Fluoride riboswitch aptamer (crcB RNA motif): a 64-nucleotide sequence from Pinibacter aurantiacus. The family's consensus secondary structure is taken from published work. A search with the family's covariance model found it, with a score of 51 bits.
[Rfam]
RNA sequence: UUAAAAAAGGGAAAUGGUGUCUUCCCUACCCAACCGCUGCAAAGCUGAUGGCGCCUACAAUAGU
Dot-bracket structure: .........[[[[..((((((]]]]..........(((....)))....)))))).........
Numbered sequence: 001u002u003a004a005a006a007a008a009g010g011g012a013a014a015u016g017g018u019g020u021c022u023u024c025c026c027u028a029c030c031c032a033a034c035c036g037c038u039g040c041a042a043a044g045c046u047g048a049u050g051g052c053g054c055c056u057a058c059a060a061u062a063g064u
Stems, first nucleotide, its partner, number of pairs: 010025004016055006036045003